[Rfam]
RNA: Mammalian CPEB3 ribozyme
Organism: Alligator mississippiensis
RNA sequence: AGUUGAGAGUUUGAGGACAUAGCAGAAGCAUUCAUAGUGCAGCCAUGUCAGAUCCCAGCAAAUCUGUGAGUUCUGCU
Numbered sequence: 001a002g003u004u005g006a007g008a009g010u011u012u013g014a015g016g017a018c019a020u021a022g023c024a025g026a027a028g029c030a031u032u033c034a035u036a037g038u039g040c041a042g043c044c045a046u047g048u049c050a051g052a053u054c055c056c057a058g059c060a061a062a063u064c065u066g067u068g069a070g071u072u073c074u075g076c077u
Stems, first nucleotide, its partner, number of pairs: 015044002021077007028040003049066005